The family of this 30-nucleotide RNA from Clostridium botulinum is "CRISPR RNA direct repeat element". Pairs were carried over by alignment from the consensus structure, which was predicted with WAR. The sequence is in the family's curated seed alignment.
[Rfam]
RNA sequence: GUUUAACUUCUAUAUUAGAUAUAUUUAAAC
Numbered sequence: 001g002u003u004u005a006a007c008u009u010c011u012a013u014a015u016u017a018g019a020u021a022u023a024u025u026u027a028a029a030c
Base pairs, nucleotide, nucleotide: 002029003028004027005026006025011023012022013021014020015019